[Rfam]
About this RNA
This 222-nucleotide sequence from Symplocastrum torsivum belongs to the Rfam family "HNH endonuclease-associated RNA and ORF (HEARO) RNA". The family's consensus secondary structure is taken from published work. Taxonomically the source falls in Symplocastrum torsivum (Bacteria, Cyanophyceae, Oscillatoriales, Symplocastrum). The family's RNA type in Rfam is non-coding RNA gene.

RNA sequence: GUCAGGAACCCCACGGCUAUAAGCCGGGGGCUUGAAUGAAGCCCACACCUGACCAGAAGACCCGUUGAAAACUGGUAGCCGUUAUUAGCAAGAGUUUAAGUUCUCACCUUGGGAUGCGUGCCAGUUCCAAGCUCUGAAACCUCAGCAUUAAACAGGUCUACAAGGGUUAAGCCAGUGUGUUGAGGAUACGCCACCUAAUAACAACUUCGAGGCAAACGUUAC
Dot-bracket structure: ((((((...(((...((.....))..).)).((......))......))))))..((((.((.((.....)).)).....((((((.................((..((((((((...[[[[.))))))))....))..(((((((((...((.((.((..(....)..)))).)))))))))))...........))))))..))))..]]].].......